[Rfam]
RNA sequence: CUCGCCCGGGUCCGUGGUUGCGCCGGGCAGGCUCUCCUCGCCGCGCUGGUGGCAGGAGGGUCUAUUCAGCAAGCCGAUGCCAGCCGCAGGCAAAACGGCCCACGUAAGGCGACUUCUCGUCGACCGAUCACGGUGCGGCUUAGAAGUAAGUCCUGCCUCGCCGGGAGACACAAGGCGUCUUCCGAUACCGAGAGAAGGGCAGUAGUGGCCAUGGAAGGCCGCGAACCCCUCAGCAGGCGGAUGUGGGGUCGAAGACCAGGUCGGCCGGGCGAG
Dot-bracket structure: (((((((((..((((((((.........................................................((([.(((((((.]........((...(...(.((((.....)))).)...)..[)))))))))...........(((((((((............................))))...((((.....((..(........)..))....))))..)))))....)))......]..)))))...))))))))))))

Source information: Shown here is a 273-nucleotide sequence from Trebonia kvetii, a member of the family "raiA RNA". NCBI's taxonomy places the organism under Bacteria, Bacillati, Actinomycetota, Treboniaceae, Trebonia.